[Rfam]
A member of the RNA family "mir-399 microRNA precursor family" from Panicum hallii, 114 nucleotides long. The literature on the family includes a 2004 paper in Mol Cell by Jones-Rhoades and Bartel, "Computational Identification of Plant MicroRNAs and Their Targets, Including a Stress-Induced miRNA". The base pairs follow the family's consensus structure, which was predicted with PFOLD. mir-399 was identified in both Arabidopsis thaliana and Oryza sativa computationally and was later experimentally verified. mir-399 is thought to target mRNAs coding for a phosphatase transporter. The family has 13 seed sequences and 2,396 matches in Rfam 15.1. NCBI's taxonomy places the organism under Eukaryota, Embryophyta, Spermatophyta, Liliopsida, Panicum hallii. It scores 62 bits against the family's covariance model.

Nucleotides: 114
Base pairs, nucleotide, nucleotide: 005110006109007108008107011104012103013102015100016099017098018097019096021094023092024091027088028087029086030085031084033082035080
Number, partner (000 for none) and nucleotide at each position: 001000g002000u003000g004000a005110g006109a007108a008107u009000c010000a011104c012103a013102g014000u015100g016099c017098g018097g019096u020000u021094c022000u023092c024091c025000u026000c027088u028087g029086g030085c031084a032000c033082g034000a035080a036000g037000g038000a039000g040000g041000a042000c043000g044000g045000a046000g047000c048000a049000g050000c051000c052000u053000g054000c055000c056000a057000c058000a059000u060000g061000g062000c063000u064000g065000g066000c067000c068000g069000c070000c071000g072000c073000c074000g075000g076000c077000c078000c079000u080035u081000c082033c083000u084031u085030g086029c087028c088027a089000a090000a091024g092023g093000c094021g095000a096019a097018u098017u099016g100015c101000c102013c103012u104011g105000c106000c107008a108007u109006u110005c111000a112000u113000a114000g